[Rfam]
RNA sequence: GUUUUUCCUUAUCUAUCUAAUACGUUGAUUUAUCUGGAACCUGUCCCAUUGCGCUUUCAGGUUCAAAAGCGCAAUAAGACAGGUUCUCGUUUAGUUGCUGCACCCGAAUCCCGG
Numbered sequence: 001g002u003u004u005u006u007c008c009u010u011a012u013c014u015a016u017c018u019a020a021u022a023c024g025u026u027g028a029u030u031u032a033u034c035u036g037g038a039a040c041c042u043g044u045c046c047c048a049u050u051g052c053g054c055u056u057u058c059a060g061g062u063u064c065a066a067a068a069g070c071g072c073a074a075u076a077a078g079a080c081a082g083g084u085u086c087u088c089g090u091u092u093a094g095u096u097g098c099u100g101c102a103c104c105c106g107a108a109u110c111c112c113g114g
Base pairs, nucleotide, nucleotide: 001099003097022090023089024088036087037086038085039084040083041082042081043080044079045078048075049074050073051072052071054069055068056067057066
Dot-bracket structure: (.(..................(((...........((((((((((..(((((.((((........)))).)))))..)))))))))))))......).)...............
Shown here is a 114-nucleotide RNA from Shimwellia blattae, a member of the family "tp2".
It is annotated as a small RNA.
On this family, see Rivas et al., Curr Biol 2001: "Computational identification of noncoding RNAs in E. coli by comparative genomics".